[Rfam]
RNA sequence: AUCACCGUGAGGUGAUGGCGAGAAGAAGCAAUAGCGAAAUCGUAGCCUGACGUACAGAAACCUAAUAUCAAGGCUUACAUAAAGGAAGAGUGGGCAUAAAGUCACAAAGUCCAAAAGGCAAACGUAACUUAUGUAAGUAAAUUAGGCAGGUAGACGAGGAAAGACUGACGAC
Dot-bracket structure: ((((((....))))))...........(...(..(....((((.(((((...........((((((......(((.((((((.(((...((((........))))....)))................)))))).)))..)))))))))))..)))).....)....)...)
Numbered sequence: 001a002u003c004a005c006c007g008u009g010a011g012g013u014g015a016u017g018g019c020g021a022g023a024a025g026a027a028g029c030a031a032u033a034g035c036g037a038a039a040u041c042g043u044a045g046c047c048u049g050a051c052g053u054a055c056a057g058a059a060a061c062c063u064a065a066u067a068u069c070a071a072g073g074c075u076u077a078c079a080u081a082a083a084g085g086a087a088g089a090g091u092g093g094g095c096a097u098a099a100a101g102u103c104a105c106a107a108a109g110u111c112c113a114a115a116a117g118g119c120a121a122a123c124g125u126a127a128c129u130u131a132u133g134u135a136a137g138u139a140a141a142u143u144a145g146g147c148a149g150g151u152a153g154a155c156g157a158g159g160a161a162a163g164a165c166u167g168a169c170g171a172c
Stems, first nucleotide, its partner, number of pairs: 001016006028172001032168001035163001040157004045151005061146006073138003077134006084112003090105004

Background
Shown here is a 172-nucleotide sequence from Peptostreptococcus stomatis, a member of the family "Group II catalytic intron D1-D4-3". A reference for the family is Bonen and Vogel (2001), "The ins and outs of group II introns", Trends Genet. Group II introns are found in rRNA, tRNA and mRNA of organelles in fungi, plants and protists, and also in mRNA in bacteria. The organism belongs to Peptostreptococcus stomatis, within Bacteria. Its family is annotated with Group II intron splicing in the Gene Ontology.